[Rfam]
RNA sequence: UUAGGUAUUCUUCAUUUUCUUUUGAAAUUUUUCUGGGAUUCUUGUUGUUGAAUGUUAAUGAAAAUGAUAUGAAGAUGAAAAAGAGGAGAAG
Numbered sequence: 001u002u003a004g005g006u007a008u009u010c011u012u013c014a015u016u017u018u019c020u021u022u023u024g025a026a027a028u029u030u031u032u033c034u035g036g037g038a039u040u041c042u043u044g045u046u047g048u049u050g051a052a053u054g055u056u057a058a059u060g061a062a063a064a065u066g067a068u069a070u071g072a073a074g075a076u077g078a079a080a081a082a083g084a085g086g087a088g089a090a091g
Base pairs, nucleotide, nucleotide: 006084008082009081011079012078013077014076015075016074017073018072019071037056038055039054042051043050
Dot-bracket structure: .....(.((.(((((((((.................(((..((......))..)))..............))))))))).)).).......
MIR5298 microRNA precursor family: a 91-nucleotide RNA sequence from Medicago truncatula. Pairs were carried over by alignment from the consensus structure, which was predicted with RNAalifold. It scores 72 bits against the family's covariance model.